[Rfam]
Nucleotides: 097
Stems, first nucleotide, its partner, number of pairs: 003095002011089005017083001020081002023078002026076006034066001036064001037060007
Number, partner (000 for none) and nucleotide at each position: 001000u002000u003095g004094u005000a006000u007000u008000u009000g010000a011089a012088u013087u014086g015085u016000a017083u018000a019000g020081g021080a022000c023078u024077g025000u026076a027075u028074u029073c030072a031071c032000a033000g034066c035000a036064u037060g038059a039058a040057a041056c042055a043054g044000g045000g046000g047000a048000u049000u050000a051000c052000a053000a054043c055042u056041g057040u058039u059038u060037u061000u062000a063000a064036a065000c066034g067000g068000a069000a070000a071031g072030u073029g074028a075027a076026u077024c078023a079000a080021u081020u082000a083017a084000c085015a086014u087013a088012a089011u090000a091000g092000a093000c094004a095003c096000c097000u